[Rfam]
RNA sequence: AGCCGUGUGGUGGGCACAAAGUGACCUAUUCUUUCGCCUUUUACUAAAGAAUACCGUGUGCUCGCCGCCUAAAGCGGUGUACGCCUAUUUUUGGAGGACUAUUUCUUCAGAAAUAAC
Numbered sequence: 001a002g003c004c005g006u007g008u009g010g011u012g013g014g015c016a017c018a019a020a021g022u023g024a025c026c027u028a029u030u031c032u033u034u035c036g037c038c039u040u041u042u043a044c045u046a047a048a049g050a051a052u053a054c055c056g057u058g059u060g061c062u063c064g065c066c067g068c069c070u071a072a073a074g075c076g077g078u079g080u081a082c083g084c085c086u087a088u089u090u091u092u093g094g095a096g097g098a099c100u101a102u103u104u105c106u107u108c109a110g111a112a113a114u115a116a117c
Base pairs, nucleotide, nucleotide: 003077004076005075006074008067009066010065011064012063013062014061015060016059017058018057027053028052029051030050031049032048033047034046100115101114102113103112104111